[Rfam]
The family of this 246-nucleotide RNA sequence from Penicillium steckii is "Small nucleolar RNA snR191". Rfam links the family to the GO terms RNA processing and nucleolus. The family is grouped with related families in Rfam's "SNORA74 clan". The family's consensus secondary structure was predicted with WAR.
RNA sequence: UUCCAUCGCUAAGUCAAGGCUUCUUCCUACGACUCAUGUCGUGCUCUGCUCAAUGGAGGUCUGUCUGUUACAGCUUUGGUAGAUCAACACUGUCCCGCACCGAAUUUCUUUCUGAAGCUAGGUUGACGGGUCUUCGUCUUGAAGGCCUGUCGUAAGGGACGGCUGUGCUUUGUUUUUGAGUUGAGUUCUGCCUCUGCCUUUUUUGGUGGCUCAGUGGUAGAACUCUUAGUAACAUCCCACACAUUC
Numbered sequence: 001u002u003c004c005a006u007c008g009c010u011a012a013g014u015c016a017a018g019g020c021u022u023c024u025u026c027c028u029a030c031g032a033c034u035c036a037u038g039u040c041g042u043g044c045u046c047u048g049c050u051c052a053a054u055g056g057a058g059g060u061c062u063g064u065c066u067g068u069u070a071c072a073g074c075u076u077u078g079g080u081a082g083a084u085c086a087a088c089a090c091u092g093u094c095c096c097g098c099a100c101c102g103a104a105u106u107u108c109u110u111u112c113u114g115a116a117g118c119u120a121g122g123u124u125g126a127c128g129g130g131u132c133u134u135c136g137u138c139u140u141g142a143a144g145g146c147c148u149g150u151c152g153u154a155a156g157g158g159a160c161g162g163c164u165g166u167g168c169u170u171u172g173u174u175u176u177u178g179a180g181u182u183g184a185g186u187u188c189u190g191c192c193u194c195u196g197c198c199u200u201u202u203u204u205g206g207u208g209g210c211u212c213a214g215u216g217g218u219a220g221a222a223c224u225c226u227u228a229g230u231a232a233c234a235u236c237c238c239a240c241a242c243a244u245u246c
Stems, first nucleotide, its partner, number of pairs: 003079003017066004022059005028043005090162006099123003103119001105117004125151012165240003171234003183225004189219004194209005
Dot-bracket structure: ..(((...........((((.(((((.(((((......)))))...........)))))...))))..........)))..........((((((...(((.(.((((.....)))).).))).((((((((((((...)))))))))))).....))))))..(((...(((.........((((..((((.(((((......)))))......))))..))))......)))...)))......